[Rfam]
A member of the RNA family "BsrC" from Paenibacillus sp. YN15, 89 nucleotides long. The 301 nucleotide sequence from Kouji Nakamura has been trimmed to a highly conserved ~85 nucleotide long core to form this family.
RNA sequence: AAUCUUAAAAACAACGAAAGCCCUGCCUCUCUUCCAUCCUUGCGGCUCCGAUGACCGCGCCAGUGAGAAUUUACACAUUCAAACAGUGA
Numbered sequence: 001a002a003u004c005u006u007a008a009a010a011a012c013a014a015c016g017a018a019a020g021c022c023c024u025g026c027c028u029c030u031c032u033u034c035c036a037u038c039c040u041u042g043c044g045g046c047u048c049c050g051a052u053g054a055c056c057g058c059g060c061c062a063g064u065g066a067g068a069a070u071u072u073a074c075a076c077a078u079u080c081a082a083a084c085a086g087u088g089a
Base pairs, nucleotide, nucleotide: 035067039063040062041059042058043057044056045055047053
Dot-bracket structure: ..................................(...(((((((.(.....).)))))..))...)......................